[Rfam]
RNA sequence: CUUAAAUGUUUUAAGCCCUCUCGUAUAACCCCAAUGAUAUGGUUUGGGGGUCUCUACCAGGAACCGAUAAUUCCUGAUUACGAAGAGUCUUGCGUUAUGC
Numbered sequence: 001c002u003u004a005a006a007u008g009u010u011u012u013a014a015g016c017c018c019u020c021u022c023g024u025a026u027a028a029c030c031c032c033a034a035u036g037a038u039a040u041g042g043u044u045u046g047g048g049g050g051u052c053u054c055u056a057c058c059a060g061g062a063a064c065c066g067a068u069a070a071u072u073c074c075u076g077a078u079u080a081c082g083a084a085g086a087g088u089c090u091u092g093c094g095u096u097a098u099g100c
Base pairs, nucleotide, nucleotide: 019085021083022082023081024080025079029049030048031047032046033045034044058076059075060074061073062072063071
About this RNA
A member of the RNA family "Purine riboswitch aptamer" from Marinomonas sp. S3726, 100 nucleotides long. It scores 72 bits against the family's covariance model. Rfam's curators write: Riboswitches are metabolite binding domains within certain messenger RNAs that serve as precision sensors for their corresponding targets. Pairs were carried over by alignment from the consensus structure, which is taken from published work. The source organism's lineage runs through Bacteria, Pseudomonadati, Pseudomonadota, Oceanospirillaceae and Marinomonas.